[Rfam]
RNA sequence: AACAAAGUGAUGAUGAAGAUGGUUUGAAGAUACGAGCUUAAGAAAGUCGGUGGUUGCUGUGAACCGAUGCUUUUUCUUCACAAAACCGAGCACUUCUGAACUGGACAGUUGAAUGAAAUAGUAGGCUGUCACGGCUUAAUGUCGUUAUUUUUCUCUGAGGUUACGUUUUGUAACAAAAGAGGGUGGCACCACGUAUAUGACGUCCCUCAU
Numbered sequence: 001a002a003c004a005a006a007g008u009g010a011u012g013a014u015g016a017a018g019a020u021g022g023u024u025u026g027a028a029g030a031u032a033c034g035a036g037c038u039u040a041a042g043a044a045a046g047u048c049g050g051u052g053g054u055u056g057c058u059g060u061g062a063a064c065c066g067a068u069g070c071u072u073u074u075u076c077u078u079c080a081c082a083a084a085a086c087c088g089a090g091c092a093c094u095u096c097u098g099a100a101c102u103g104g105a106c107a108g109u110u111g112a113a114u115g116a117a118a119u120a121g122u123a124g125g126c127u128g129u130c131a132c133g134g135c136u137u138a139a140u141g142u143c144g145u146u147a148u149u150u151u152u153c154u155c156u157g158a159g160g161u162u163a164c165g166u167u168u169u170g171u172a173a174c175a176a177a178a179g180a181g182g183g184u185g186g187c188a189c190c191a192c193g194u195a196u197a198u199g200a201c202g203u204c205c206c207u208c209a210u
Stems, first nucleotide, its partner, number of pairs: 007101002015096004025080004035071003046068006104130007132144003160174006180207004191203004